The record is a 103-nucleotide RNA sequence from Paenibacillus sp. NFR01, which matches "Purine riboswitch aptamer" in Rfam. The match comes from Rfam's covariance-model search (63 bits).
[Rfam]
RNA sequence: ACAUAAAAAUCACAAUACUCUUGUAUAAGCCCGAUAAUCCGGAUUGGGCGUAUCUACAGGCAACCGUAAAUUGCCCCAGGCUACAAGAGACAUGGUACCAGAA
Numbered sequence: 001a002c003a004u005a006a007a008a009a010u011c012a013c014a015a016u017a018c019u020c021u022u023g024u025a026u027a028a029g030c031c032c033g034a035u036a037a038u039c040c041g042g043a044u045u046g047g048g049c050g051u052a053u054c055u056a057c058a059g060g061c062a063a064c065c066g067u068a069a070a071u072u073g074c075c076c077c078a079g080g081c082u083a084c085a086a087g088a089g090a091c092a093u094g095g096u097a098c099c100a101g102a103a
Stems, first nucleotide, its partner, number of pairs: 018089008029049007059075005
Taxonomically the source falls in Paenibacillus (Bacteria, Bacillati, Bacilli, Paenibacillaceae).